[Rfam]
Overview: Shown here is a 178-nucleotide RNA sequence from Bacilli bacterium VT-13-104, a member of the family "Lysine riboswitch aptamer". The source organism's lineage runs through Bacteria, Bacillati, Bacillota and Bacilli.
RNA sequence: AAGUAAGGUAGAGGUGCAAAGACCAUCAGUACUUAUGUAGAGGAGAAUGAGAUCUGACGAAACAUAAGGAAAGGGGAAUUUGCCGAAGCGGAGGGAUUCUCAUUAUCCCAACGUUGGGUCUGUAUUGAAUAAGUACAGAACUGUCAUAUAGGGGACUAUAUGGGGGGCUAUCUAGCUA
Numbered sequence: 001a002a003g004u005a006a007g008g009u010a011g012a013g014g015u016g017c018a019a020a021g022a023c024c025a026u027c028a029g030u031a032c033u034u035a036u037g038u039a040g041a042g043g044a045g046a047a048u049g050a051g052a053u054c055u056g057a058c059g060a061a062a063c064a065u066a067a068g069g070a071a072a073g074g075g076g077a078a079u080u081u082g083c084c085g086a087a088g089c090g091g092a093g094g095g096a097u098u099c100u101c102a103u104u105a106u107c108c109c110a111a112c113g114u115u116g117g118g119u120c121u122g123u124a125u126u127g128a129a130u131a132a133g134u135a136c137a138g139a140a141c142u143g144u145c146a147u148a149u150a151g152g153g154g155a156c157u158a159u160a161u162g163g164g165g166g167g168c169u170a171u172c173u174a175g176c177u178a
Stems, first nucleotide, its partner, number of pairs: 006173006016083005023076002032068007087115004093109005116142002119139008144163007